The record is a 75-nucleotide RNA from Pomacea canaliculata, which matches "Small nucleolar RNA SNORD79" in Rfam. For this family Rfam cites "Purified box C/D snoRNPs are able to reproduce site-specific 2'-O-methylation of target RNA in vitro" (Galardi et al., Mol Cell Biol, 2002). About the family: snoRNA U79 or Z22 is found in intron 7 of the gas5 gene in humans and is also present in mice. Pairs were carried over by alignment from the consensus structure, which was predicted with PFOLD. Rfam links the family to the GO terms RNA processing and nucleolus.
[Rfam]
RNA sequence: UGCGGCAGGUGAUGAUACUUUGUGUUAAAUGGGAAUCUCUCUGAUUUUGUUGAUGAGCAACAUUCUGAUGCUGCA
Numbered sequence: 001u002g003c004g005g006c007a008g009g010u011g012a013u014g015a016u017a018c019u020u021u022g023u024g025u026u027a028a029a030u031g032g033g034a035a036u037c038u039c040u041c042u043g044a045u046u047u048u049g050u051u052g053a054u055g056a057g058c059a060a061c062a063u064u065c066u067g068a069u070g071c072u073g074c075a
Base pairs, nucleotide, nucleotide: 001075002074003073004072005071006070007069